[Rfam]
RNA sequence: UGCGGAGCGCGUGUUUCAGAACGAUCUUGGUGAAACUCACGCCUUUCAGUCGCGCCGUGCGGAUAUAUUGCGCGGUCAUCACCUCGGCCAUUGAGGCGCGGGUCAUCCGGGCGAUAUAGCCCAUGCCGUAGAGCGCCAGCGUCAUCACCGGCAGGGUGAAGUUCCAGAAGGUGAUGU
Numbered sequence: 001u002g003c004g005g006a007g008c009g010c011g012u013g014u015u016u017c018a019g020a021a022c023g024a025u026c027u028u029g030g031u032g033a034a035a036c037u038c039a040c041g042c043c044u045u046u047c048a049g050u051c052g053c054g055c056c057g058u059g060c061g062g063a064u065a066u067a068u069u070g071c072g073c074g075g076u077c078a079u080c081a082c083c084u085c086g087g088c089c090a091u092u093g094a095g096g097c098g099c100g101g102g103u104c105a106u107c108c109g110g111g112c113g114a115u116a117u118a119g120c121c122c123a124u125g126c127c128g129u130a131g132a133g134c135g136c137c138a139g140c141g142u143c144a145u146c147a148c149c150g151g152c153a154g155g156g157u158g159a160a161g162u163u164c165c166a167g168a169a170g171g172u173g174a175u176g177u
Base pairs, nucleotide, nucleotide: 005140009136010135011134012133014131015130016128019126021124028123029122030121038113040111042109046105048103050101051100052099053098054097055075056074057073058072059071060070061069062068082096083095084094085093086092147177151172152171154165155164156163
The family of this 177-nucleotide sequence from Roseobacter sp. HKCCD8822 is "Ruegeria cis52 sRNA". NCBI's taxonomy places the organism under Bacteria, Pseudomonadati, Pseudomonadota, Alphaproteobacteria, Roseobacter. The family's consensus secondary structure was predicted with RNAfold. A search with the family's covariance model found it, with a score of 124 bits. By type it is a small RNA.